The family of this 74-nucleotide RNA sequence from Ornithorhynchus anatinus is "mir-1421 microRNA precursor family". The family has 53 seed sequences and 110 matches in Rfam 15.1. The family's consensus secondary structure was predicted with RNAalifold. NCBI's taxonomy places the organism under Eukaryota, Deuterostomia, Dipnotetrapodomorpha, Ornithorhynchidae, Ornithorhynchus. Gene Ontology terms of the family: miRNA-mediated post-transcriptional gene silencing and RISC complex.

Nucleotides: 074
Base pairs, nucleotide, nucleotide: 003071004070005069006068007067010064011063012062013061014060015059016058018056019055021053023051024050025049026048
Number, partner (000 for none) and nucleotide at each position: 001000c002000g003071g004070u005069g006068u007067g008000g009000a010064g011063a012062g013061g014060u015059c016058a017000c018056g019055u020000c021053u022000c023051a024050u025049g026048c027000c028000g029000u030000g031000u032000g033000a034000c035000g036000g037000u038000u039000u040000a041000a042000u043000a044000u045000g046000c047000u048026g049025c050024g051023u052000g053021g054000a055019g056018c057000a058016u059015g060014a061013u062012c063011u064010c065000c066000c067007u068006a069005c070004a071003c072000a073000g074000u